RNA: Bacterial RNase P class A
Organism: Candidatus Cryosericum terrychapinii
Nucleotides: 320
Stems, first nucleotide, its partner, number of pairs: 001316011012286007020042009047304003051301005056213004063246004068209005073087005088102001089100004103204002108202001110198003125144002127140005152170002155167003171193001172191004177186003217267004227258006238250003
Number, partner (000 for none) and nucleotide at each position: 001316a002315c003314c004313g005312c006311g007310a008309a009308u010307g011306a012286g013285u014284c015283a016282g017281u018280c019000g020042c021041a022040g023039g024038c025037a026036g027035g028034a029000g030000a031000u032000u033000u034028u035027c036026c037025u038024g039023c040022u041021u042020g043000a044000g045000g046000a047304a048303a049302g050000u051301c052300c053299g054298g055297g056213c057212u058211c059210c060000a061000a062000g063246a064245a065244g066243c067000g068209a069208g070207u071206u072205g073087c074086u075085c076084g077083g078000g079000a080000a081000a082000c083077c084076c085075g086074a087073g088102u089100g090099g091098g092097g093000g094000u095000a096000a097092c098091c099090c100089c101000a102088a103204g104203g105000a106000a107000a108202g109000c110198g111197c112196a113000a114000c115000a116000g117000a118000a119000a120000a121000u122000a123000u124000a125144c126143c127140g128139c129138c130137c131136c132000g133000c134000a135000a136131g137130g138129g139128g140127u141000a142000a143126g144125g145000g146000u147000g148000a149000a150000a151000u152170g153169g154000c155167g156166g157165u158000g159000u160000a161000a162000g163000a164000g165157a166156c167155c168000a169153c170152c171193g172191g173190c174189a175188g176000a177186c178185c179184a180000g181000c182000g183000a184179u185178g186177g187000g188175c189174u190173g191172c192000g193171c194000a195000u196112u197111g198110c199000a200000a201000a202108c203104c204103c205072c206071a207070a208069c209068u210059g211058g212057a213056g214000c215000a216000a217267g218266a219265c220264a221000a222000a223000a224000u225000a226000g227258g228257a229256a230255g231254g232253c233000a234000a235000a236000c237000a238250g239249g240248g241000c242000u243066g244065c245064u246063u247000c248240u249239c250238c251000c252000u253232g254231c255230c256229u257228u258227c259000g260000g261000g262000u263000a264220u265219g266218u267217c268000g269000c270000u271000u272000a273000g274000a275000u276000a277000a278000a279000u280018g281017a282016c283015u284014g285013a286012c287000c288000a289000c290000g291000a292000c293000a294000g295000a296000a297055c298054c299053u300052g301051g302049c303048u304047u305000a306011u307010c308009a309008u310007u311006c312005g313004c314003g315002g316001u317000a318000a319000a320000u